The record is a 135-nucleotide RNA from Triplophysa rosa, which matches "Small nucleolar RNA SNORA68" in Rfam. Gene Ontology terms of the family: nucleolus and RNA processing. The organism belongs to Triplophysa, within Eukaryota. Pairs were carried over by alignment from the consensus structure, which was predicted with PFOLD. For this family Rfam cites "The family of box ACA small nucleolar RNAs is defined by an evolutionarily conserved secondary structure and ubiquitous sequence elements essential for RNA accumulation" (Ganot et al., Genes Dev, 1997). U68 is a member of the H/ACA class of small nucleolar RNAs (snoRNAs) which act as guides in the the modification of uridines to pseudouridines. The family's RNA type in Rfam is H/ACA-box small nucleolar RNA.
[Rfam]
Nucleotides: 135
Base pairs, nucleotide, nucleotide: 003059004058005057006056007055008054009053019045020044021043022042023041024040025039027037028036071128073126075125076124077123083114084113085112086111087110088109091106092105093104
Number, partner (000 for none) and nucleotide at each position: 001000c002000c003059u004058g005057c006056a007055c008054a009053c010000a011000a012000a013000c014000c015000c016000a017000a018000a019045g020044g021043u022042c023041a024040u025039u026000u027037g028036c029000u030000g031000u032000c033000g034000g035000u036028g037027u038000c039025a040024g041023u042022g043021a044020c045019c046000c047000u048000g049000c050000u051000g052000u053009g054008u055007g056006u057005g058004c059003a060000c061000a062000a063000a064000a065000u066000a067000a068000a069000a070000u071128g072000g073126a074000a075125c076124u077123c078000g079000u080000c081000g082000c083114c084113u085112u086111u087110c088109a089000u090000a091106g092105g093104c094000u095000a096000u097000g098000u099000u100000a101000u102000g103000u104093g105092c106091c107000a108000u109088u110087g111086a112085a113084a114083g115000u116000a117000a118000a119000a120000u121000c122000a123077g124076g125075g126073u127000g128071c129000a130000a131000c132000a133000u134000g135000u